[Rfam]
RNA sequence: AGGUAAGAGCAUUUGGUGGAUGCCUUGGCAUGUACAGGCGAUGAAGGACGUGGCACGCUGCGAUAAGCGUCGGGGAGAUGUGAGCAAUCUUUGAUCCGGCGAUUUCCGAAUGGGGAAACCCACCUUCACCAUUUCUUCCUGGUCUCUUUCGAGGGAUCCGGGCGAGGUGGAUAAGGUAUUACCUUAGUGAAUAAAAUAACUUUGGUGAAGCAAACCCGGGGAACUGAAACAUCUCAGUACCCGGAGGAAAAGACAUCAACCGAGAUUCCGUUAGUAGUGGCGAGCGAACGCGGACCAGGCCAGUGCCUUCAUUUCAACUAGCAGAACACUUUGGGAAGAGUGGCCAUAGCGGGUGACAGCCCCGUAUGCAAAAGUGAUGAUGAAGGACUCGAGUAGGGCGGAACACGUGAAAUUCUGUCUGAACAUGGGGGGACCACCCUCCAAGCCUAAAUACUCGUACAUGACCGAUAGUGAACAAGUACCGUGAGGGAAAGGUGAAAAGCACCCCGAUUAGGGGAGUGAAAAAGUACCUGAAACCGAAUGCUUACAAU
Dot-bracket structure: ......((((((((((.....(((..(((((((((((((......((((((........))).....(((((((..(((.......))).....)))))))...)))....(((....)))(((((..............................................))))).(((((..(((..........)))..))))).))...((((((.....((....))......))))).).........((....))..((((((.....((.....))....)))))..((((....(((((((((...(((.(((...(((((......)))))..(...).(((.......)))...)))...)))...)))))))).).......((((((((.........))))))))......(((((......)))))..))))..)..)).))))))).))...............((....))....)).........((((.....)))).............).....)))))))))).....
Numbered sequence: 001a002g003g004u005a006a007g008a009g010c011a012u013u014u015g016g017u018g019g020a021u022g023c024c025u026u027g028g029c030a031u032g033u034a035c036a037g038g039c040g041a042u043g044a045a046g047g048a049c050g051u052g053g054c055a056c057g058c059u060g061c062g063a064u065a066a067g068c069g070u071c072g073g074g075g076a077g078a079u080g081u082g083a084g085c086a087a088u089c090u091u092u093g094a095u096c097c098g099g100c101g102a103u104u105u106c107c108g109a110a111u112g113g114g115g116a117a118a119c120c121c122a123c124c125u126u127c128a129c130c131a132u133u134u135c136u137u138c139c140u141g142g143u144c145u146c147u148u149u150c151g152a153g154g155g156a157u158c159c160g161g162g163c164g165a166g167g168u169g170g171a172u173a174a175g176g177u178a179u180u181a182c183c184u185u186a187g188u189g190a191a192u193a194a195a196a197u198a199a200c201u202u203u204g205g206u207g208a209a210g211c212a213a214a215c216c217c218g219g220g221g222a223a224c225u226g227a228a229a230c231a232u233c234u235c236a237g238u239a240c241c242c243g244g245a246g247g248a249a250a251a252g253a254c255a256u257c258a259a260c261c262g263a264g265a266u267u268c269c270g271u272u273a274g275u276a277g278u279g280g281c282g283a284g285c286g287a288a289c290g291c292g293g294a295c296c297a298g299g300c301c302a303g304u305g306c307c308u309u310c311a312u313u314u315c316a317a318c319u320a321g322c323a324g325a326a327c328a329c330u331u332u333g334g335g336a337a338g339a340g341u342g343g344c345c346a347u348a349g350c351g352g353g354u355g356a357c358a359g360c361c362c363c364g365u366a367u368g369c370a371a372a373a374g375u376g377a378u379g380a381u382g383a384a385g386g387a388c389u390c391g392a393g394u395a396g397g398g399c400g401g402a403a404c405a406c407g408u409g410a411a412a413u414u415c416u417g418u419c420u421g422a423a424c425a426u427g428g429g430g431g432g433a434c435c436a437c438c439c440u441c442c443a444a445g446c447c448u449a450a451a452u453a454c455u456c457g458u459a460c461a462u463g464a465c466c467g468a469u470a471g472u473g474a475a476c477a478a479g480u481a482c483c484g485u486g487a488g489g490g491a492a493a494g495g496u497g498a499a500a501a502g503c504a505c506c507c508c509g510a511u512u513a514g515g516g517g518a519g520u521g522a523a524a525a526a527g528u529a530c531c532u533g534a535a536a537c538c539g540a541a542u543g544c545u546u547a548c549a550a551u
Stems, first nucleotide, its partner, number of pairs: 007546010022531001023495002027466002029463007036455002038211002046107003049062003068101007077089003112121003122177005179208005186201003215246001216244005226233002256263002266451001267294005277285002297448004305388001306386008317375003321369003327342005345349001351363003396420008427442005482489002505517004
This 551-nucleotide part of an RNA from Alteraurantiacibacter aestuarii belongs to the Rfam family "Bacterial large subunit ribosomal RNA". The source organism's lineage runs through Bacteria, Pseudomonadati, Pseudomonadota, Sphingomonadales and Alteraurantiacibacter. A search with the family's covariance model found it, with a score of 2683 bits. Rfam 15.1 lists 51,934 matches to the family in 10,816 species.